[Rfam]
RNA: Group II catalytic intron D1-D4-6
Organism: Maledivibacter halophilus
RNA sequence: AAAGUCCAUAUAAGUCAAGGUUUAACCAACCAACUUUAUCGAGUGUUGCGCUAUGUCUGGUGACAGUCAUGGUGAAGUGUACACAGAGAAUCAUAUAGACCACAGGGGAACCGUAUCCCUGAAGUAUAUUCAGCCUCGUUAACCGUGUCCCCUCGAAAGAGGGUAAAGCAGAUGACGACGUAUUUAACGUUACGGAAGUCAAUACAAAAGAAUCGCAAAAGGUAAGAUUCUAGAGGGUCUGCCGGGGUCCAAGAACG
Numbered sequence: 001a002a003a004g005u006c007c008a009u010a011u012a013a014g015u016c017a018a019g020g021u022u023u024a025a026c027c028a029a030c031c032a033a034c035u036u037u038a039u040c041g042a043g044u045g046u047u048g049c050g051c052u053a054u055g056u057c058u059g060g061u062g063a064c065a066g067u068c069a070u071g072g073u074g075a076a077g078u079g080u081a082c083a084c085a086g087a088g089a090a091u092c093a094u095a096u097a098g099a100c101c102a103c104a105g106g107g108g109a110a111c112c113g114u115a116u117c118c119c120u121g122a123a124g125u126a127u128a129u130u131c132a133g134c135c136u137c138g139u140u141a142a143c144c145g146u147g148u149c150c151c152c153u154c155g156a157a158a159g160a161g162g163g164u165a166a167a168g169c170a171g172a173u174g175a176c177g178a179c180g181u182a183u184u185u186a187a188c189g190u191u192a193c194g195g196a197a198g199u200c201a202a203u204a205c206a207a208a209a210g211a212a213u214c215g216c217a218a219a220a221g222g223u224a225a226g227a228u229u230c231u232a233g234a235g236g237g238u239c240u241g242c243c244g245g246g247g248u249c250c251a252a253g254a255a256c257g
Stems, first nucleotide, its partner, number of pairs: 012036004019031004023225001025223002039087002043084004047079002049074007057066003130251001133248006168242006174200003179194004205236001209231006
Dot-bracket structure: ...........((((...(((([.[[.)))).))))..((..(((((((((((((.(((....))).)))))))...)).)))).))..........................................(..((((((.............................(((((((((..((((........))))...)))....(...((((((.......]].]))))))....)))))))))))))..)......